[Rfam]
RNA sequence: CUAUGAACUAUAGAAGUUCAUGGCGGAAGGAG
Number, nucleotide and partner (000 for none) at each position: 001c023002u022003a021004u020005g019006a018007a017008c016009u000010a000011u000012a000013g000014a000015a000016g008017u007018u006019c005020a004021u003022g002023g001024c000025g000026g000027a000028a000029g000030g000031a000032g000

Shown here is a 32-nucleotide sequence, a member of the family "L31-Firmicutes ribosomal protein leader". The family is grouped with related families in Rfam's "Ribosomal Protein L31 Leader clan". On this family, see Eckert and Weinberg, BMC Microbiol 2020: "Discovery of 20 novel ribosomal leader candidates in bacteria and archaea". It is one of the family's seed sequences.